[Rfam]
RNA sequence: GCCGGUCCUCGGUAGUGGCCUCCGGUCAGGAUGGAACCGGGCGCUUCGAUCGAAGACCGGC
Dot-bracket structure: (((((((.(((((...(((.((((((.........)))))).)))...))))).)))))))
Numbered sequence: 001g002c003c004g005g006u007c008c009u010c011g012g013u014a015g016u017g018g019c020c021u022c023c024g025g026u027c028a029g030g031a032u033g034g035a036a037c038c039g040g041g042c043g044c045u046u047c048g049a050u051c052g053a054a055g056a057c058c059g060g061c
Stems, first nucleotide, its partner, number of pairs: 001061007009053005017045003021041006
Notes:
Shown here is a 61-nucleotide RNA sequence from Streptosporangiaceae bacterium NEAU-GS5, a member of the family "Actino-pnp RNA". The source organism's lineage runs through Bacteria, Bacillati, Actinomycetota, Actinomycetes and Streptosporangiaceae.